[Rfam]
RNA sequence: GAUAGUUCCUAAAAGUCUUGAGUUUUAUCCCAUGAAACUCAUGGAACUACCAGCGGCCCCGCACGGGGAGCAGUUCGAUGGGCCAACACACCUACGGAUGUUGUUCCAGUCUGUAGCUCUGUGGCUUCGGUUUAAGGGUAGCCGAAAGGCGAAGGUGACCGAAGCAUGACAAGCCCACUGAACAGUCGCGAGGAGCAUCUUAC
Numbered sequence: 001g002a003u004a005g006u007u008c009c010u011a012a013a014a015g016u017c018u019u020g021a022g023u024u025u026u027a028u029c030c031c032a033u034g035a036a037a038c039u040c041a042u043g044g045a046a047c048u049a050c051c052a053g054c055g056g057c058c059c060c061g062c063a064c065g066g067g068g069a070g071c072a073g074u075u076c077g078a079u080g081g082g083c084c085a086a087c088a089c090a091c092c093u094a095c096g097g098a099u100g101u102u103g104u105u106c107c108a109g110u111c112u113g114u115a116g117c118u119c120u121g122u123g124g125c126u127u128c129g130g131u132u133u134a135a136g137g138g139u140a141g142c143c144g145a146a147a148g149g150c151g152a153a154g155g156u157g158a159c160c161g162a163a164g165c166a167u168g169a170c171a172a173g174c175c176c177a178c179u180g181a182a183c184a185g186u187c188g189c190g191a192g193g194a195g196c197a198u199c200u201u202a203c
Stems, first nucleotide, its partner, number of pairs: 001050001003049006011028001012026002017022001053189005058070001059067002073183005079177005088122002092116008100199001102197006124165009136156001139152001141150003
RNA: HNH endonuclease-associated RNA and ORF (HEARO) RNA